[Rfam]
RNA sequence: CCCUGGGCAGUGCCUCCAGGACUGUCUGAUCUGAGAAUGUGAGGCUGAAGACUCAGUCUCAGGUUCGUCAGCCCGAGAGGCGCUGCCCUUCC
Numbered sequence: 001c002c003c004u005g006g007g008c009a010g011u012g013c014c015u016c017c018a019g020g021a022c023u024g025u026c027u028g029a030u031c032u033g034a035g036a037a038u039g040u041g042a043g044g045c046u047g048a049a050g051a052c053u054c055a056g057u058c059u060c061a062g063g064u065u066c067g068u069c070a071g072c073c074c075g076a077g078a079g080g081c082g083c084u085g086c087c088c089u090u091c092c
Stems, first nucleotide, its partner, number of pairs: 005089003008085009019074002022071003026067001028065009038055002
Source information
The record is a 92-nucleotide sequence from Chrysochloris asiatica, which matches "mir-1388 microRNA precursor family" in Rfam. The organism belongs to Chrysochloris, within Eukaryota.